[Rfam]
RNA sequence: ACGUGCUCUGGGGUCGGUGUAAUUCCGAGCCGGCGGUAUAGUCCGCGACCCGCACCUCGGUGCGGUUGACCUGGUGAGACUCCAGGACCGACGGUUAAAGUCCGGAUGGGAAGAGACUCGU
Numbered sequence: 001a002c003g004u005g006c007u008c009u010g011g012g013g014u015c016g017g018u019g020u021a022a023u024u025c026c027g028a029g030c031c032g033g034c035g036g037u038a039u040a041g042u043c044c045g046c047g048a049c050c051c052g053c054a055c056c057u058c059g060g061u062g063c064g065g066u067u068g069a070c071c072u073g074g075u076g077a078g079a080c081u082c083c084a085g086g087a088c089c090g091a092c093g094g095u096u097a098a099a100g101u102c103c104g105g106a107u108g109g110g111a112a113g114a115g116a117c118u119c120g121u
Base pairs, nucleotide, nucleotide: 003117004116006115007114008113009112015027016026017025029101030100031090032089033046034045035044036043041088042087050065051064070086071085072084073083074082092104093103094102
Dot-bracket structure: ..((.((((.....(((.......))).[[((((((....[[))))...((............))....(((((.......)))))]])).(((.....]]))).......))))))....
The family of this 121-nucleotide RNA from Sanguibacter antarcticus is "FMN riboswitch aptamer (RFN element)".
Pairs were carried over by alignment from the consensus structure, which is taken from published work.
It scores 90 bits against the family's covariance model.